[Rfam]
A member of the RNA family "c-di-GMP-I riboswitch aptamer" from Aminicella lysinilytica, 121 nucleotides long. On this family, see Sudarsan et al., Science 2008: "Riboswitches in Eubacteria Sense the Second Messenger Cyclic Di-GMP". GEMM was predicted in a large-scale screen for bacterial structured RNA regulatory elements. A search with the family's covariance model found it, with a score of 46 bits.
Nucleotides: 121
Stems, first nucleotide, its partner, number of pairs: 012037002017032006040115004047111002049107009
Number, partner (000 for none) and nucleotide at each position: 001000a002000g003000g004000g005000g006000u007000a008000a009000a010000a011000a012037g013036c014000a015000a016000a017032g018031c019030c020029g021028a022027g023000g024000u025000g026000a027022u028021u029020c030019g031018g032017u033000g034000a035000c036013g037012c038000a039000a040115a041114a042113c043112u044000a045000c046000a047111g048110g049107g050106u051105c052104u053103g054102u055101g056100u057099g058000a059000g060000u061000a062000a063000g064000a065000a066000g067000g068000a069000a070000a071000g072000u073000g074000u075000u076000a077000u078000u079000u080000u081000u082000c083000a084000u085000u086000g087000c088000g089000a090000u091000g092000g093000u094000u095000u096000g097000u098000a099057u100056g101055u102054g103053c104052a105051g106050a107049u108000u109000g110048c111047c112043a113042g114041u115040u116000g117000c118000c119000u120000u121000a